Rfam assigns this 372-nucleotide sequence from Methylosinus sporium to the family "Alphaproteobacteria transfer-messenger RNA". About the family: Bacterial tmRNA, also known as 10Sa RNA or SsrA, is named for its dual tRNA and mRNA-like properties. It is annotated as a non-coding RNA gene.
RNA sequence: CCCCUUUCCGCAUCGUCCCUUAAUGCGUAUAUUGUGAGCUGCCGCCUCUCGGGGCGGCUAUGGCGAUAAACGAACUCCGUAAUAAACCUAUCGGACCCGGGGGCGGUACCCGGCGCCUCCACCAGAGGCCGUCACGCGAAAUCUUCACGUCGCGGCUUGUGGCGGGGGCGAAAUAGGAUCGACGAGGGCGUAAAGGGUGCUUUUUCGCUCGGCAUGAUACCGCCGUUAUCGGGUCAAACCUUAUAGUUGCCAACGACAACUAUGCUCCGGUGGCCGUCGCUGCGUAAUGCAGUGAAGGUACUGGGAUUCAAGCCCUAGGGGGUUGCACUUCUAGGCGGGGCUCGGAGGCGCCUGGCAACAGAAGCCUCCACU
Number, nucleotide and partner (000 for none) at each position: 001c000002c000003c000004c000005u000006u000007u000008c000009c000010g000011c000012a000013u000014c000015g000016u000017c000018c000019c000020u000021u000022a000023a000024u000025g000026c000027g000028u000029a000030u000031a000032u000033u000034g000035u000036g000037a000038g000039c000040u000041g058042c057043c056044g055045c054046c053047u052048c000049u000050c000051g000052g047053g046054g045055c044056g043057g042058c041059u000060a000061u000062g209063g208064c207065g206066a205067u000068a000069a000070a000071c000072g202073a201074a000075c199076u000077c197078c196079g000080u000081a000082a000083u000084a000085a000086a000087c188088c187089u186090a000091u185092c184093g183094g000095a000096c000097c113098c112099g111100g110101g109102g000103g000104c000105g000106g000107u000108a000109c101110c100111c099112g098113g097114c170115g169116c168117c167118u166119c165120c164121a000122c000123c000124a000125g000126a000127g000128g000129c000130c000131g000132u000133c000134a000135c000136g000137c000138g000139a000140a000141a000142u000143c000144u000145u000146c000147a000148c000149g000150u000151c000152g000153c000154g000155g000156c000157u000158u000159g000160u000161g000162g000163c000164g120165g119166g118167g117168g116169c115170g114171a000172a000173a000174u000175a000176g000177g000178a000179u000180c000181g000182a000183c093184g092185a091186g089187g088188g087189c000190g000191u000192a000193a000194a000195g000196g078197g077198u000199g075200c000201u073202u072203u000204u000205u066206c065207g064208c063209u062210c225211g224212g223213c222214a000215u236216g235217a234218u000219a000220c232221c231222g213223c212224c211225g210226u000227u000228a000229u000230c000231g221232g220233g000234u217235c216236a215237a000238a000239c000240c000241u000242u000243a000244u000245a000246g000247u000248u000249g000250c000251c000252a000253a000254c000255g000256a000257c000258a000259a000260c000261u000262a000263u000264g000265c000266u000267c000268c000269g000270g000271u000272g000273g000274c000275c000276g000277u000278c000279g000280c000281u000282g000283c000284g000285u000286a000287a000288u000289g000290c000291a000292g000293u000294g000295a000296a000297g000298g000299u000300a000301c000302u000303g000304g000305g000306a000307u000308u000309c000310a000311a000312g000313c000314c000315c000316u000317a000318g000319g000320g000321g000322g000323u000324u000325g000326c000327a000328c000329u000330u000331c000332u000333a000334g000335g000336c000337g000338g353339g352340g351341c350342u000343c000344g369345g368346a367347g366348g365349c364350g341351c340352c339353u338354g000355g000356c000357a000358a000359c000360a000361g000362a000363a000364g349365c348366c347367u346368c345369c344370a000371c000372u000